[Rfam]
RNA sequence: UCUUCAUUGUUCGUACUCUCUCAUAGGUCAGAGCGACGAGAGAGCGUGCGAAAUGAAGAGA
Dot-bracket structure: (((((((..(.(((.((.((((...............)))).)).))).)..)))))))..
RNA: mir-8364 microRNA precursor family
Organism: Pristionchus pacificus